Shown here is an 86-nucleotide sequence from Kingella potus, a member of the family "sRNA-Xcc1".
Rfam 15.1 lists 421 matches to the family in 299 species.
The family's consensus secondary structure was predicted with RNAalifold.
RNA sequence: GACGGGUUGAUAGCCGUAAAUACAAAACCUUUUGGGGGAAUAGCGGCAGCCGUCUUGAUACGGUAGUUGAAGCCCGUCGCCAUUUU
Numbered sequence: 001g002a003c004g005g006g007u008u009g010a011u012a013g014c015c016g017u018a019a020a021u022a023c024a025a026a027a028c029c030u031u032u033u034g035g036g037g038g039a040a041u042a043g044c045g046g047c048a049g050c051c052g053u054c055u056u057g058a059u060a061c062g063g064u065a066g067u068u069g070a071a072g073c074c075c076g077u078c079g080c081c082a083u084u085u086u
Base pairs, nucleotide, nucleotide: 001078002077003076004075005074006073007072013047014046015045016044019041028037029036030035049064050063051062052061053060
The source organism's lineage runs through Bacteria, Pseudomonadati, Neisseriales, Neisseriaceae and Kingella.